Rfam assigns this 308-nucleotide RNA from Oryzias latipes to the family "Nuclear RNase P". The family has 116 seed sequences and 3,848 matches in Rfam 15.1.
RNA sequence: GUGAGUGGAAGCUCAUUGUAGAGGUCACGUGCUGAGUGUUCGUCACUCCUCCAAUCACCUCGGGGAAGGUCUGAGUCAAGAGCCAAUCGUUACCCUUGCAGGGUAUCACCUGAUUCGGGUGAGCGAGUGAACAGAAAAAUUGGGCCACCGCACGCAGUUUCAGCAGGAGAAGCUAGGUGGUGCUGGUUCACGCGCCUCCCAGUGGAUGUGCUGCGUGCUGGCUUGGAAUCACUCGCGGCUGGCGAAUGAGUCCGAUGUAUGAGGUGGAGCAAUGCUCCAGAACCCAAUUCAGACUACUCUCCACUCAC
Numbered sequence: 001g002u003g004a005g006u007g008g009a010a011g012c013u014c015a016u017u018g019u020a021g022a023g024g025u026c027a028c029g030u031g032c033u034g035a036g037u038g039u040u041c042g043u044c045a046c047u048c049c050u051c052c053a054a055u056c057a058c059c060u061c062g063g064g065g066a067a068g069g070u071c072u073g074a075g076u077c078a079a080g081a082g083c084c085a086a087u088c089g090u091u092a093c094c095c096u097u098g099c100a101g102g103g104u105a106u107c108a109c110c111u112g113a114u115u116c117g118g119g120u121g122a123g124c125g126a127g128u129g130a131a132c133a134g135a136a137a138a139a140u141u142g143g144g145c146c147a148c149c150g151c152a153c154g155c156a157g158u159u160u161c162a163g164c165a166g167g168a169g170a171a172g173c174u175a176g177g178u179g180g181u182g183c184u185g186g187u188u189c190a191c192g193c194g195c196c197u198c199c200c201a202g203u204g205g206a207u208g209u210g211c212u213g214c215g216u217g218c219u220g221g222c223u224u225g226g227a228a229u230c231a232c233u234c235g236c237g238g239c240u241g242g243c244g245a246a247u248g249a250g251u252c253c254g255a256u257g258u259a260u261g262a263g264g265u266g267g268a269g270c271a272a273u274g275c276u277c278c279a280g281a282a283c284c285c286a287a288u289u290c291a292g293a294c295u296a297c298u299c300u301c302c303a304c305u306c307a308c
Stems, first nucleotide, its partner, number of pairs: 001308004007302003012263005021061004034048005071292005081240004091105005106122006123236007144222003265279006
About this RNA
About the family: Ribonuclease P (RNase P) is a ubiquitous endoribonuclease, found in archaea, bacteria and eukarya as well as chloroplasts and mitochondria. Its best characterised activity is the generation of mature 5'-ends of tRNAs by cleaving the 5'-leader elements of precursor-tRNAs. Cellular RNase Ps are ribonucleoproteins. RNA from bacterial RNase Ps retains its catalytic activity in the absence of the protein subunit, i.e. it is a ribozyme. The sequence is in the family's curated seed alignment. Rfam classes the family as a ribozyme. The base pairs follow the family's consensus structure, which is taken from published work.